This 145-nucleotide sequence from Tepidibacillus decaturensis belongs to the Rfam family "FMN riboswitch aptamer (RFN element)". NCBI's taxonomy places the organism under Bacteria, Bacillota, Bacilli, Caryophanales, Tepidibacillus. A search with the family's covariance model found it, with a score of 124 bits.
[Rfam]
RNA sequence: UAAAUCCUUCGGGGUCGGGUGAAAUUCCCAACCGGCGGUAAUCAGGGAUAACCUGUAGUCCGCGACCCAAUACGUCUUUUGAUGUGUUGGCUGAUUCGGUGAGAUUCCGAAACCGACAGUAAAGUCUGGAUGGGAGAAGGAUAUG
Numbered sequence: 001u002a003a004a005u006c007c008u009u010c011g012g013g014g015u016c017g018g019g020u021g022a023a024a025u026u027c028c029c030a031a032c033c034g035g036c037g038g039u040a041a042u043c044a045g046g047g048a049u050a051a052c053c054u055g056u057a058g059u060c061c062g063c064g065a066c067c068c069a070a071u072a073c074g075u076c077u078u079u080u081g082a083u084g085u086g087u088u089g090g091c092u093g094a095u096u097c098g099g100u101g102a103g104a105u106u107c108c109g110a111a112a113c114c115g116a117c118a119g120u121a122a123a124g125u126c127u128g129g130a131u132g133g134g135a136g137a138a139g140g141a142u143a144u145g
Stems, first nucleotide, its partner, number of pairs: 004142007017029003031125002033115002035063004058113002067090004095111005117128003